[Rfam]
RNA sequence: GUUCUCAAUGAUGUUACUUAUACCAUGCUAAUGCUGAUAAGUCAUGAUUAUAAUUAAUAUCAAUUGACUGAGGGAACU
Numbered sequence: 001g002u003u004c005u006c007a008a009u010g011a012u013g014u015u016a017c018u019u020a021u022a023c024c025a026u027g028c029u030a031a032u033g034c035u036g037a038u039a040a041g042u043c044a045u046g047a048u049u050a051u052a053a054u055u056a057a058u059a060u061c062a063a064u065u066g067a068c069u070g071a072g073g074g075a076a077c078u
Stems, first nucleotide, its partner, number of pairs: 001077005
Annotation
This 78-nucleotide sequence from Lathyrus oleraceus belongs to the Rfam family "Small nucleolar RNA snoR53Y". The family is grouped with related families in Rfam's "snoR53 clan". The family's consensus secondary structure was predicted with WAR. Gene Ontology terms of the family: RNA processing and nucleolus. Lineage of the source: Eukaryota > Magnoliopsida > Fabaceae > Hologalegina > Lathyrus.